About this RNA:
Rfam assigns this 76-nucleotide sequence from Dasyornis broadbenti to the family "mir-196 microRNA precursor family". The family has 84 seed sequences and 1,813 matches in Rfam 15.1. For this family Rfam cites "New microRNAs from mouse and human" (Lagos-Quintana et al., RNA, 2003). The match comes from Rfam's covariance-model search (64 bits). Pairs were carried over by alignment from the consensus structure, which was predicted with PFOLD.
[Rfam]
RNA sequence: UCGGUGGAUUAGGUAGUUUCAUGUUGUUGGGCUCUGCGUUUCAAACACAAGGACAUCGAACUACCUGCUCCACUCC
Numbered sequence: 001u002c003g004g005u006g007g008a009u010u011a012g013g014u015a016g017u018u019u020c021a022u023g024u025u026g027u028u029g030g031g032c033u034c035u036g037c038g039u040u041u042c043a044a045a046c047a048c049a050a051g052g053a054c055a056u057c058g059a060a061c062u063a064c065c066u067g068c069u070c071c072a073c074u075c076c
Base pairs, nucleotide, nucleotide: 003074004073005072006071007070008069010067011066012065013064014063015062016061017060018059019058022055023054024053025052027050028049029048031046